[Rfam]
RNA sequence: GCCACAUUCUAAUUUUCGUUCCUUGCUUCCGCAGACAGGUGGUCGGUCUAUCGCGCGGAGGCUGAUUAACCCGUAAGGAGCAGUAAUG
Numbered sequence: 001g002c003c004a005c006a007u008u009c010u011a012a013u014u015u016u017c018g019u020u021c022c023u024u025g026c027u028u029c030c031g032c033a034g035a036c037a038g039g040u041g042g043u044c045g046g047u048c049u050a051u052c053g054c055g056c057g058g059a060g061g062c063u064g065a066u067u068a069a070c071c072c073g074u075a076a077g078g079a080g081c082a083g084u085a086a087u088g
Stems, first nucleotide, its partner, number of pairs: 018081007025062008
Description: A member of the RNA family "RpsF leader" from Mesocricetibacter intestinalis, 88 nucleotides long. About the family: Conserved and widely distributed to many bacterial species RNA structure. It precedes operon containing rpsF, which encodes ribosomal protein S6. The match comes from Rfam's covariance-model search (39 bits). A reference for the family is Matelska et al. (2013), "S6:S18 ribosomal protein complex interacts with a structural motif present in its own mRNA", RNA. The family's RNA type in Rfam is cis-regulatory leader.